[Rfam]
RNA sequence: GAGACGGUAUCGCUGAAUUGUGAACUGUACUCCGGCUAGGCUUUAAGUAUUGAGUAAUUGCUUUUGGAUGUACCUUCAUAACUGUACAACACGGUUACGUUGGAUUCUGCUCUGAGCCGUAAGGACCGAGACAGAAGG
Numbered sequence: 001g002a003g004a005c006g007g008u009a010u011c012g013c014u015g016a017a018u019u020g021u022g023a024a025c026u027g028u029a030c031u032c033c034g035g036c037u038a039g040g041c042u043u044u045a046a047g048u049a050u051u052g053a054g055u056a057a058u059u060g061c062u063u064u065u066g067g068a069u070g071u072a073c074c075u076u077c078a079u080a081a082c083u084g085u086a087c088a089a090c091a092c093g094g095u096u097a098c099g100u101u102g103g104a105u106u107c108u109g110c111u112c113u114g115a116g117c118c119g120u121a122a123g124g125a126c127c128g129a130g131a132c133a134g135a136a137g138g
Stems, first nucleotide, its partner, number of pairs: 001032003004028005010023004107134003110130003114126001117124002
Dot-bracket structure: ((((((((.((((......))))))))).)))..........................................................................((((((.(..((....)).).))).)))....
A member of the RNA family "pan motif" from Paenibacillus sp. FSL R7-0331, 138 nucleotides long. The organism belongs to Paenibacillus, within Bacteria.